[Rfam]
RNA sequence: CCGGCUCCGGUUCACCUCGUGCGAACACCGACGGGGACCCGGCGGCC
Numbered sequence: 001c002c003g004g005c006u007c008c009g010g011u012u013c014a015c016c017u018c019g020u021g022c023g024a025a026c027a028c029c030g031a032c033g034g035g036g037a038c039c040c041g042g043c044g045g046c047c
Stems, first nucleotide, its partner, number of pairs: 003047003007042004015036006022030002
Description:
L31-Actinobacteria ribosomal protein leader: a 47-nucleotide sequence from Amycolatopsis sp. CA-230715. By type it is a cis-regulatory leader. Taxonomically the source falls in Amycolatopsis (Bacteria, Bacillati, Actinomycetes, Pseudonocardiales). The match comes from Rfam's covariance-model search (54 bits).